Shown here is a 143-nucleotide RNA from Pipistrellus kuhlii, a member of the family "Small nucleolar RNA SNORA79".
Rfam's curators write: ACA65 (SNORA79) is a member of the H/ACA class of snoRNAs that guide the sites of modification of uridines to pseudouridines. This snoRNA was identified by computational screening and its expression in mouse experimentally verified by Northern blot and primer extension analysis.
Its family is annotated with RNA processing and nucleolus in the Gene Ontology.
NCBI's taxonomy places the organism under Eukaryota, Amniota, Mammalia, Laurasiatheria, Pipistrellus.

[Rfam]
RNA sequence: CGAUGACCGUUCCUCCUCCUGCCUGCAGGCCUGGCACUGGGAUUUCAGGUCAUCGGAAAUUAAAAGUGAUUUUCUUCACUCAGAGAAUAUCAGGAUAAUGGGAUUAUCUGUUUGUUCUCUGAACUUUGCGGAAUCAAACACUU
Numbered sequence: 001c002g003a004u005g006a007c008c009g010u011u012c013c014u015c016c017u018c019c020u021g022c023c024u025g026c027a028g029g030c031c032u033g034g035c036a037c038u039g040g041g042a043u044u045u046c047a048g049g050u051c052a053u054c055g056g057a058a059a060u061u062a063a064a065a066g067u068g069a070u071u072u073u074c075u076u077c078a079c080u081c082a083g084a085g086a087a088u089a090u091c092a093g094g095a096u097a098a099u100g101g102g103a104u105u106a107u108c109u110g111u112u113u114g115u116u117c118u119c120u121g122a123a124c125u126u127u128g129c130g131g132a133a134u135c136a137a138a139c140a141c142u143u
Stems, first nucleotide, its partner, number of pairs: 001055008014042004020036004068135006080122010093109005